[Rfam]
RNA sequence: GCCACGGCUAGGGUAGCUCCCGAAAACCGCAUCCUGAGCGGCUGCCGUUGGCGCUUUCACCUUCAGG
Numbered sequence: 001g002c003c004a005c006g007g008c009u010a011g012g013g014u015a016g017c018u019c020c021c022g023a024a025a026a027c028c029g030c031a032u033c034c035u036g037a038g039c040g041g042c043u044g045c046c047g048u049u050g051g052c053g054c055u056u057u058c059a060c061c062u063u064c065a066g067g
Base pairs, nucleotide, nucleotide: 001052002051003050004049005047006046007045008044011021012020013019027041028040029039030038033067034066035065036064037063